RNA sequence: UGCUAUGAUGUUUGUUAUUUGCGUCAGAUGACAAGUAAGGUGACAGUUGCCUGCUGUCAUAUGCCUUUUUGUUUAACUGACGAUGACAUUUUACUGAGCU
Numbered sequence: 001u002g003c004u005a006u007g008a009u010g011u012u013u014g015u016u017a018u019u020u021g022c023g024u025c026a027g028a029u030g031a032c033a034a035g036u037a038a039g040g041u042g043a044c045a046g047u048u049g050c051c052u053g054c055u056g057u058c059a060u061a062u063g064c065c066u067u068u069u070u071g072u073u074u075a076a077c078u079g080a081c082g083a084u085g086a087c088a089u090u091u092u093a094c095u096g097a098g099c100u
Base pairs, nucleotide, nucleotide: 002099003098022082023081024080025079031072032071033070034069035068040064041063042058043057044056045055046054
Dot-bracket structure: .((..................((((.....(((((....(((((((.......)))))....))...)))))......))))...............)).